RNA sequence: GAUUACCCAACCCUCUCGGUAAUCGCGGCUG
Numbered sequence: 001g002a003u004u005a006c007c008c009a010a011c012c013c014u015c016u017c018g019g020u021a022a023u024c025g026c027g028g029c030u031g
Base pairs, nucleotide, nucleotide: 001024002023003022004021005020006019007018
The family of this 31-nucleotide sequence is "S4-Bacteroidia ribosomal protein leader". Rfam's curators put it in the seed alignment. The family's consensus secondary structure is taken from published work. By type it is a cis-regulatory leader. Its Rfam clan is "Ribosomal Protein S4 Leader clan". A reference for the family is Eckert and Weinberg (2020), "Discovery of 20 novel ribosomal leader candidates in bacteria and archaea", BMC Microbiol.